[Rfam]
RNA: TD-1 RNA
RNA sequence: AAAACACUGCGAGUUUGCAUAAAGCAAACUCGUUGAUUGUAUGCACUUUUUCAGCUUCGCUUGCAAAAGUGCGAAAAAUAAGCAAUGCUCGAAAAUUGAUAUUUUCUGCGCUUGCUUAUUCUAUAG
Numbered sequence: 001a002a003a004a005c006a007c008u009g010c011g012a013g014u015u016u017g018c019a020u021a022a023a024g025c026a027a028a029c030u031c032g033u034u035g036a037u038u039g040u041a042u043g044c045a046c047u048u049u050u051u052c053a054g055c056u057u058c059g060c061u062u063g064c065a066a067a068a069g070u071g072c073g074a075a076a077a078a079u080a081a082g083c084a085a086u087g088c089u090c091g092a093a094a095a096u097u098g099a100u101a102u103u104u105u106c107u108g109c110g111c112u113u114g115c116u117u118a119u120u121c122u123a124u125a126g
Stems, first nucleotide, its partner, number of pairs: 011031008043072008077120009087111002091106006